[Rfam]
RNA sequence: GGGGAUGAGAAAGCAAGAAUCGCAUGCCGAGGACUCCUGGCUCCUCGUAAAUCAUCCGGGAAACAACACAACUGCCAACAACGAAAUGGCACUUGCUGCCUGAUCUAAAAGUCAGGUGAGCUAGCGUCUACCGGUACCAGUGCCUGUCCUGGUCCGGAGGCGUCGAGAUGACAGGAUGGCUUCCGGAACCCGCCUGGGUUCCGCUAGCGACACAGAUCCAGGCUCGCGGCGAAAAGGGUGUGUCCUUUCUCCCUCUAGUGGCCAGACAAAAAAAAGGGCUAAGCAUGUAGUGGUUCUUAGCGGACUGUUUCCGGACGCGGGUUCGAUUCCCGCCGCCUCCACCA
Numbered sequence: 001g002g003g004g005a006u007g008a009g010a011a012a013g014c015a016a017g018a019a020u021c022g023c024a025u026g027c028c029g030a031g032g033a034c035u036c037c038u039g040g041c042u043c044c045u046c047g048u049a050a051a052u053c054a055u056c057c058g059g060g061a062a063a064c065a066a067c068a069c070a071a072c073u074g075c076c077a078a079c080a081a082c083g084a085a086a087u088g089g090c091a092c093u094u095g096c097u098g099c100c101u102g103a104u105c106u107a108a109a110a111g112u113c114a115g116g117u118g119a120g121c122u123a124g125c126g127u128c129u130a131c132c133g134g135u136a137c138c139a140g141u142g143c144c145u146g147u148c149c150u151g152g153u154c155c156g157g158a159g160g161c162g163u164c165g166a167g168a169u170g171a172c173a174g175g176a177u178g179g180c181u182u183c184c185g186g187a188a189c190c191c192g193c194c195u196g197g198g199u200u201c202c203g204c205u206a207g208c209g210a211c212a213c214a215g216a217u218c219c220a221g222g223c224u225c226g227c228g229g230c231g232a233a234a235a236g237g238g239u240g241u242g243u244c245c246u247u248u249c250u251c252c253c254u255c256u257a258g259u260g261g262c263c264a265g266a267c268a269a270a271a272a273a274a275a276g277g278g279c280u281a282a283g284c285a286u287g288u289a290g291u292g293g294u295u296c297u298u299a300g301c302g303g304a305c306u307g308u309u310u311c312c313g314g315a316c317g318c319g320g321g322u323u324c325g326a327u328u329c330c331c332g333c334c335g336c337c338u339c340c341a342c343c344a
Base pairs, nucleotide, nucleotide: 001312002311003310004309005308006307007306013301014300015298016297017296018295019294020293021292022291023287024286025285026284027283028047029046030045031044032043035061036060037059038058039057040056097118098117099116100115101114102113103112104111125162126161127160128159131157132156133155136153137152138151139150143175144174145173146172147171148170179208180207181206184203192223193222194221195220196219197218224264226262227261229259230258232256242279243278244277247274248273317333318332319331320330321329

This 344-nucleotide RNA sequence from Leptospirillum ferrooxidans belongs to the Rfam family "transfer-messenger RNA". About the family: Bacterial tmRNA, also known as 10Sa RNA or SsrA, is named for its dual tRNA and mRNA-like properties. Its role is to liberate the mRNA from a stalled ribosome. The organism belongs to Leptospirillum sp. Group I, within Bacteria. It is annotated as a non-coding RNA gene. It is one of the family's seed sequences. Rfam links the family to the GO term RNA catabolic process.